[Rfam]
RNA sequence: UUGCACUGAUGAUCGUGGAUCUUACUGACCUGGCAUUGCUGGCCUCUGGGCCGGCUCUGGCCAGGAAUUGAUCUCAGUUAAUCUUCUCUCUGAGCAG
Numbered sequence: 001u002u003g004c005a006c007u008g009a010u011g012a013u014c015g016u017g018g019a020u021c022u023u024a025c026u027g028a029c030c031u032g033g034c035a036u037u038g039c040u041g042g043c044c045u046c047u048g049g050g051c052c053g054g055c056u057c058u059g060g061c062c063a064g065g066a067a068u069u070g071a072u073c074u075c076a077g078u079u080a081a082u083c084u085u086c087u088c089u090c091u092g093a094g095c096a097g
Base pairs, nucleotide, nucleotide: 001096003095004094038055039054040053041052
Z30 small nucleolar RNA: a 97-nucleotide RNA sequence from Cottoperca gobio. Rfam links the family to the GO terms nucleolus and RNA processing. It scores 76 bits against the family's covariance model. A reference for the family is Galardi et al. (2002), "Purified box C/D snoRNPs are able to reproduce site-specific 2'-O-methylation of target RNA in vitro", Mol Cell Biol.